RNA: Purine riboswitch aptamer
RNA sequence: CAUAAUAUUCGUAAGAUAACUCGUAUAAUUUUGAGAUUGGUCAAAAGUUUCUACUGGAUACCGUAAAUAUCCACGCUAUGAGUGAAUUCUUGCGGAUA
Numbered sequence: 001c002a003u004a005a006u007a008u009u010c011g012u013a014a015g016a017u018a019a020c021u022c023g024u025a026u027a028a029u030u031u032u033g034a035g036a037u038u039g040g041u042c043a044a045a046a047g048u049u050u051c052u053a054c055u056g057g058a059u060a061c062c063g064u065a066a067a068u069a070u071c072c073a074c075g076c077u078a079u080g081a082g083u084g085a086a087u088u089c090u091u092g093c094g095g096a097u098a
Base pairs, nucleotide, nucleotide: 019083020082021081022080023079024078025077029046030045031044032043033042034041055073056072057071058070059069060068